[Rfam]
RNA sequence: GGGCCCAUCUUCCAGUACAGUGUUGGAUGGUCUAAUCUCGAAGCUCCUAACACUGUCUGGUAAAGAUGGCCCC
Numbered sequence: 001g002g003g004c005c006c007a008u009c010u011u012c013c014a015g016u017a018c019a020g021u022g023u024u025g026g027a028u029g030g031u032c033u034a035a036u037c038u039c040g041a042a043g044c045u046c047c048u049a050a051c052a053c054u055g056u057c058u059g060g061u062a063a064a065g066a067u068g069g070c071c072c073c
Base pairs, nucleotide, nucleotide: 002072003071005069006068007067008066009065010063011062012060013059015058017056018055019054020053021052022051023050024049025048026047
mir-8/mir-141/mir-200 microRNA precursor family: a 73-nucleotide RNA from Eptesicus fuscus. The source organism's lineage runs through Eukaryota, Gnathostomata, Dipnotetrapodomorpha, Boreoeutheria and Eptesicus. The family is grouped with related families in Rfam's "mir-8 microRNA precursor clan". The base pairs follow the family's consensus structure, which was predicted with RNAalifold. A reference for the family is Lagos-Quintana et al. (2001), "Identification of novel genes coding for small expressed RNAs", Science.